[Rfam]
U2 spliceosomal RNA: a 194-nucleotide sequence from Nicotiana attenuata. Rfam describes the family as follows. U2 is a small nuclear RNA (snRNA) component of the spliceosome (involved in pre-mRNA splicing). Complementary binding between U2 snRNA (in an area lying towards the 5' end but 3' to hairpin I) and the branchpoint sequence (BPS) of the intron results the bulging out of an unpaired adenosine, on the BPS, which initiates a nucleophilic attack at the intronic 5' splice site, thus starting the first of two transesterification reactions that mediate splicing. On this family, see Newby and Greenbaum, RNA 2001: "A conserved pseudouridine modification in eukaryotic U2 snRNA induces a change in branch-site architecture". The family's RNA type in Rfam is spliceosomal small nuclear RNA. Its family is annotated with U2 snRNP, mRNA branch site recognition and pre-mRNA branch point binding in the Gene Ontology. The organism belongs to Nicotiana, within Eukaryota. Pairs were carried over by alignment from the consensus structure, which is taken from published work.

RNA sequence: AUACCUUUCUCGGCCUUUUGGCUAAGAUCAACUAUAGCAUCUGUUCUUAUCAGUUUAAUAUCUGAUAUGUGGGUCAUCGACCCACGCGAUAUAACUCAUUUUCUAAGGGAGAAGGCCCAUUAGGUUAGCUUGCUACCUCGGCCUUCGCGCGUCGCCUAGGCAUUGCAUUACAGCGCAGACCUAGCGCCCCUAAA
Numbered sequence: 001a002u003a004c005c006u007u008u009c010u011c012g013g014c015c016u017u018u019u020g021g022c023u024a025a026g027a028u029c030a031a032c033u034a035u036a037g038c039a040u041c042u043g044u045u046c047u048u049a050u051c052a053g054u055u056u057a058a059u060a061u062c063u064g065a066u067a068u069g070u071g072g073g074u075c076a077u078c079g080a081c082c083c084a085c086g087c088g089a090u091a092u093a094a095c096u097c098a099u100u101u102u103c104u105a106a107g108g109g110a111g112a113a114g115g116c117c118c119a120u121u122a123g124g125u126u127a128g129c130u131u132g133c134u135a136c137c138u139c140g141g142c143c144u145u146c147g148c149g150c151g152u153c154g155c156c157u158a159g160g161c162a163u164u165g166c167a168u169u170a171c172a173g174c175g176c177a178g179a180c181c182u183a184g185c186g187c188c189c190c191u192a193a194a
Base pairs, nucleotide, nucleotide: 008027009026010025012023013022014021015020048067049066050065051064052063053062069085070084071083072082073081074080075079111146112145113144114143115142116141117140126135127134128133149187150186151185152184154182156178157177160174161173